[Rfam]
RNA sequence: CCAUCAUCACCAUCACCUAAAUUAGUCUUUCGGGUGAGUUGCGCGUACCCGGGAGAUACAGCUCUCGGUGGUUAAAUCAAGAAUUACAGAUUUAAACCCUUGGGAGCUUAGCUCCCAAGGGUUUUUUCAU
Dot-bracket structure: ........((((.(..((..(........)..))...).))...)).((.(((((......))))))).........................(((((((((((((.....)))))))))))))......
The record is a 130-nucleotide sequence from Vibrio ezurae, which matches "Histidine operon leader" in Rfam. Its family is annotated with histidine biosynthetic process in the Gene Ontology. The match comes from Rfam's covariance-model search (72 bits). The base pairs follow the family's consensus structure, which is taken from published work. Rfam describes the family as follows. At least 6 amino acid operons are known to be regulated by attenuation. In each a leader sequence of 150-200 bp is found upstream of the first gene in the operon. This leader sequence can assume two different secondary structures known as the terminator and the anti-terminator structure. In each case the leader also codes for very short peptide sequence that is rich in the end product amino acid of the operon.